[Rfam]
RNA sequence: AUACUUACCUUAAGAUAUCAGAGGAGAUCAAGAAGUCCUACUGAUCAAACAUGCGCUUCCAAUGGUAGAAGGAUGUUAAGCAUUUAUCUCUGAAUUAUUAAUAAUUCUCUGAAAUAAUUGAUGCAAACUCCUUGGUCACUUACACAUACAUUGCGGAAGGCGUGUUUGCUGACGUUCCGUUCCCUUGUUUCAAUCAUCGAUUAUCCCUGUGGUUUCUUUGGAAAUCGCGGGGUUCAAUUGAUUUUUGAGGCCCUUUGUUUCUUCUGCCUGGAGAAGUUUGACACCAAAUUCAAAUUGGUGUUAGGGGAGUUGGGGCCUUUUAGAAGAGAGUGUUGUUGAGGUAUUCUUAUAGUGUACUUUCCUCUAGCGCACCGUUCAAUCUUUUAGAUGGCUGAUUCUCAUGGACUUUUAGUUCAUGAUGAAGGUAUAGCCGUUGGGGUUGGCCGGUCAGGACUGUAUAUUUGAGGAUGCGUUCUUUUGAGCAAUCUCGGUUUCACUCGUUGUCAUUUAUGAGAAAAAUUCUGGAAGGUCUUGGUAGGAACGGGUGGAUCUUAUAAUUUUUGAUUUAUUUU
Numbered sequence: 001a002u003a004c005u006u007a008c009c010u011u012a013a014g015a016u017a018u019c020a021g022a023g024g025a026g027a028u029c030a031a032g033a034a035g036u037c038c039u040a041c042u043g044a045u046c047a048a049a050c051a052u053g054c055g056c057u058u059c060c061a062a063u064g065g066u067a068g069a070a071g072g073a074u075g076u077u078a079a080g081c082a083u084u085u086a087u088c089u090c091u092g093a094a095u096u097a098u099u100a101a102u103a104a105u106u107c108u109c110u111g112a113a114a115u116a117a118u119u120g121a122u123g124c125a126a127a128c129u130c131c132u133u134g135g136u137c138a139c140u141u142a143c144a145c146a147u148a149c150a151u152u153g154c155g156g157a158a159g160g161c162g163u164g165u166u167u168g169c170u171g172a173c174g175u176u177c178c179g180u181u182c183c184c185u186u187g188u189u190u191c192a193a194u195c196a197u198c199g200a201u202u203a204u205c206c207c208u209g210u211g212g213u214u215u216c217u218u219u220g221g222a223a224a225u226c227g228c229g230g231g232g233u234u235c236a237a238u239u240g241a242u243u244u245u246u247g248a249g250g251c252c253c254u255u256u257g258u259u260u261c262u263u264c265u266g267c268c269u270g271g272a273g274a275a276g277u278u279u280g281a282c283a284c285c286a287a288a289u290u291c292a293a294a295u296u297g298g299u300g301u302u303a304g305g306g307g308a309g310u311u312g313g314g315g316c317c318u319u320u321u322a323g324a325a326g327a328g329a330g331u332g333u334u335g336u337u338g339a340g341g342u343a344u345u346c347u348u349a350u351a352g353u354g355u356a357c358u359u360u361c362c363u364c365u366a367g368c369g370c371a372c373c374g375u376u377c378a379a380u381c382u383u384u385u386a387g388a389u390g391g392c393u394g395a396u397u398c399u400c401a402u403g404g405a406c407u408u409u410u411a412g413u414u415c416a417u418g419a420u421g422a423a424g425g426u427a428u429a430g431c432c433g434u435u436g437g438g439g440u441u442g443g444c445c446g447g448u449c450a451g452g453a454c455u456g457u458a459u460a461u462u463u464g465a466g467g468a469u470g471c472g473u474u475c476u477u478u479u480g481a482g483c484a485a486u487c488u489c490g491g492u493u494u495c496a497c498u499c500g501u502u503g504u505c506a507u508u509u510a511u512g513a514g515a516a517a518a519a520u521u522c523u524g525g526a527a528g529g530u531c532u533u534g535g536u537a538g539g540a541a542c543g544g545g546u547g548g549a550u551c552u553u554a555u556a557a558u559u560u561u562u563g564a565u566u567u568a569u570u571u572u
Base pairs, nucleotide, nucleotide: 010557011556012555013552014551015550017045018044019043020042021041022039023038024037025036046168047167048166049165050164051163052162053161054160056159057158058157059156060155074150075149076148173543174542175541176540177539178538181308182307183306184305185304186303187251188250189249190248191247192246193245197241198240199239200238201237211226212225213224214223215222216221261276262275263274264273265272281301282300283299284298285297286296287295504513505512506511
Shown here is a 572-nucleotide RNA from Saccharomyces x bayanus, a member of the family "Yeast U1 spliceosomal RNA". Gene Ontology terms of the family: pre-mRNA 5'-splice site binding, U1 snRNP and mRNA 5'-splice site recognition. The family is grouped with related families in Rfam's "U1 clan". By type it is a spliceosomal small nuclear RNA. About the family: U1 is a small nuclear RNA (snRNA) component of the spliceosome (involved in pre-mRNA splicing). The sequence is in the family's curated seed alignment. Pairs were carried over by alignment from the consensus structure, which is taken from published work.